[Rfam]
RNA: anti ponA RNA
RNA sequence: GAAGUUGUCAUCUUCGGCCGCCAGCAGGGCAUUGAUGAAGUUCGGUGGAAUGUCCGCGAAACGCACUGGGGCGCGGCGCAUUUCGCCGAAUUCGGAGAUCAGCUUGCCAUCGCUGCUGUAGACCCGUAGCGGGAUCUGCAACUGGAUGCUGCGCAGGGCUUCAACCGAGGGCAGGUUCGGGCUCAGGUAGAGAAAGGCUCCGCUCAGGCCCAGCAACAGUGAGCAGAACACUGCAACGAGGGACCACCAGAAAAACUUCAGCAGGCGUAUCAAGGCUUUUGGAUUUCCAGAAAA
Numbered sequence: 001g002a003a004g005u006u007g008u009c010a011u012c013u014u015c016g017g018c019c020g021c022c023a024g025c026a027g028g029g030c031a032u033u034g035a036u037g038a039a040g041u042u043c044g045g046u047g048g049a050a051u052g053u054c055c056g057c058g059a060a061a062c063g064c065a066c067u068g069g070g071g072c073g074c075g076g077c078g079c080a081u082u083u084c085g086c087c088g089a090a091u092u093c094g095g096a097g098a099u100c101a102g103c104u105u106g107c108c109a110u111c112g113c114u115g116c117u118g119u120a121g122a123c124c125c126g127u128a129g130c131g132g133g134a135u136c137u138g139c140a141a142c143u144g145g146a147u148g149c150u151g152c153g154c155a156g157g158g159c160u161u162c163a164a165c166c167g168a169g170g171g172c173a174g175g176u177u178c179g180g181g182c183u184c185a186g187g188u189a190g191a192g193a194a195a196g197g198c199u200c201c202g203c204u205c206a207g208g209c210c211c212a213g214c215a216a217c218a219g220u221g222a223g224c225a226g227a228a229c230a231c232u233g234c235a236a237c238g239a240g241g242g243a244c245c246a247c248c249a250g251a252a253a254a255a256c257u258u259c260a261g262c263a264g265g266c267g268u269a270u271c272a273a274g275g276c277u278u279u280u281g282g283a284u285u286u287c288c289a290g291a292a293a294a
Stems, first nucleotide, its partner, number of pairs: 011171007020162001024046002027043004047084006054078001057075002062069001086095003101160004105155003108148004115142001117140006123133004176290002179287003183283002186279002197268002200265002202262003206258002214238001221232001